About this RNA: Plastid-ccsA-ndhD-1 3UTR RNA: a 57-nucleotide RNA from Viviania marifolia. Plastid-ccsA-ndhD-1 is a non-coding RNA (ncRNA) recognised in plastids. The family's RNA type in Rfam is cis-regulatory element. The base pairs follow the family's consensus structure, which was predicted with LocARNA. The literature on the family includes a 2023 paper in Plant Commun by Richter et al., "Retrograde signaling in plants: A critical review focusing on the GUN pathway and beyond". Its Rfam clan is "Plastid-ccsA_ndhD 3UTR RNA clan". Taxonomically the source falls in Viviania (Eukaryota, Streptophytina, Euphyllophyta, malvids). Rfam's curators put it in the seed alignment.

RNA sequence: AAGCCGUCGAGAACCAUUUGAAUAACUCCACUACUGGAUUCAAAGGGUUCUCACAAA
Numbered sequence: 001a002a003g004c005c006g007u008c009g010a011g012a013a014c015c016a017u018u019u020g021a022a023u024a025a026c027u028c029c030a031c032u033a034c035u036g037g038a039u040u041c042a043a044a045g046g047g048u049u050c051u052c053a054c055a056a057a
Base pairs, nucleotide, nucleotide: 009052010051011050012049013048014047015046017044018043019042020041021040022039023038